[Rfam]
RNA sequence: AUUAUGUCCAGUCUAAUUCUGCAUCAUGUCAUCGUAUAUUGUCGCAGACUCGCUUUUGGACUAAAGUAAACUUUUAUUAUCCUUGUGCUUGUGACAGACUCUAGUUCAAUGCACACGAGAAACGUAGAAGAACAGCC
Numbered sequence: 001a002u003u004a005u006g007u008c009c010a011g012u013c014u015a016a017u018u019c020u021g022c023a024u025c026a027u028g029u030c031a032u033c034g035u036a037u038a039u040u041g042u043c044g045c046a047g048a049c050u051c052g053c054u055u056u057u058g059g060a061c062u063a064a065a066g067u068a069a070a071c072u073u074u075u076a077u078u079a080u081c082c083u084u085g086u087g088c089u090u091g092u093g094a095c096a097g098a099c100u101c102u103a104g105u106u107c108a109a110u111g112c113a114c115a116c117g118a119g120a121a122a123c124g125u126a127g128a129a130g131a132a133c134a135g136c137c
Stems, first nucleotide, its partner, number of pairs: 006061005019047004025041002027038002071130007082119006
Rfam assigns this 137-nucleotide RNA sequence from Drosophila busckii to the family "Small nucleolar RNA psi28S-1192". From the family's description: psi28S-1192 is a member of the H/ACA class of snoRNA. This family is responsible for guiding the modification of uridine 1192 to pseudouridine in Drosophila 28S rRNA. The organism belongs to Dorsilopha, within Eukaryota. The base pairs follow the family's consensus structure, which was predicted with ILM.